[Rfam]
RNA sequence: ACGGGCCGUCGCGGACGCCCGUCCAGACGGCCCGCCGUCCAAGGUCCGC
Numbered sequence: 001a002c003g004g005g006c007c008g009u010c011g012c013g014g015a016c017g018c019c020c021g022u023c024c025a026g027a028c029g030g031c032c033c034g035c036c037g038u039c040c041a042a043g044g045u046c047c048g049c
Stems, first nucleotide, its partner, number of pairs: 001022006011049005026039005